[Rfam]
The record is a 140-nucleotide RNA sequence from Ictidomys tridecemlineatus, which matches "Small nucleolar RNA SNORA29" in Rfam. It is annotated as an H/ACA-box small nucleolar RNA. Its Rfam clan is "SNORA20 clan". On this family, see Huttenhofer et al., EMBO J 2001: "RNomics: an experimental approach that identifies 201 candidates for novel, small, non-messenger RNAs in mouse". Rfam's curators write: ACA29 is a member of the H/ACA class of snoRNA that guide the sites of modification of uridines to pseudouridines. Its family is annotated with RNA processing and nucleolus in the Gene Ontology. The family has 26 seed sequences and 960 matches in Rfam 15.1.
RNA sequence: UUUCCCAUAUGACUACCACAUUUUCUUCUAAUAAUAGACUUUAGUGGCUAUGCUUAUGGGAUAGAUUAAAGUUGCCAUGAUCUGAAGAGGGAGGAUUUUCAAGUGUUCUCCUUCUAUAUGAAAUGGCUGAACAAAAAGUC
Numbered sequence: 001u002u003u004c005c006c007a008u009a010u011g012a013c014u015a016c017c018a019c020a021u022u023u024u025c026u027u028c029u030a031a032u033a034a035u036a037g038a039c040u041u042u043a044g045u046g047g048c049u050a051u052g053c054u055u056a057u058g059g060g061a062u063a064g065a066u067u068a069a070a071g072u073u074g075c076c077a078u079g080a081u082c083u084g085a086a087g088a089g090g091g092a093g094g095a096u097u098u099u100c101a102a103g104u105g106u107u108c109u110c111c112u113u114c115u116a117u118a119u120g121a122a123a124u125g126g127c128u129g130a131a132c133a134a135a136a137a138g139u140c
Base pairs, nucleotide, nucleotide: 004060005059006058007057016047017046018045019044074127075126076125077124092115093114094113095112